RNA: Small nucleolar RNA SNORD69
Organism: Alligator mississippiensis
RNA sequence: UACAUGAAGCACAUGAUGAUGUAUUGGAACUGACUUUGUAUGAGGAGUUUUUAUUCAAUCCAACACUGAGCUUCAUGUC
Numbered sequence: 001u002a003c004a005u006g007a008a009g010c011a012c013a014u015g016a017u018g019a020u021g022u023a024u025u026g027g028a029a030c031u032g033a034c035u036u037u038g039u040a041u042g043a044g045g046a047g048u049u050u051u052u053a054u055u056c057a058a059u060c061c062a063a064c065a066c067u068g069a070g071c072u073u074c075a076u077g078u079c
Stems, first nucleotide, its partner, number of pairs: 002078009